RNA sequence: GCACCACCGCAGGGGAGCGCUGCAGCGCUGAGAGUGUGGGACGACCCACAGACCCUCGAACCUGAUCCGGGUCAUGCCGGCGCAGGGAGUCGGAUCUCCACCGAGC
Numbered sequence: 001g002c003a004c005c006a007c008c009g010c011a012g013g014g015g016a017g018c019g020c021u022g023c024a025g026c027g028c029u030g031a032g033a034g035u036g037u038g039g040g041a042c043g044a045c046c047c048a049c050a051g052a053c054c055c056u057c058g059a060a061c062c063u064g065a066u067c068c069g070g071g072u073c074a075u076g077c078c079g080g081c082g083c084a085g086g087g088a089g090u091c092g093g094a095u096c097u098c099c100a101c102c103g104a105g106c
Base pairs, nucleotide, nucleotide: 007093008092009091011056012055013054014053017028018027019026020025035050036049037048038047039046061086062085063084064083067080068079069078070077
RNA: TPP riboswitch aptamer (THI element)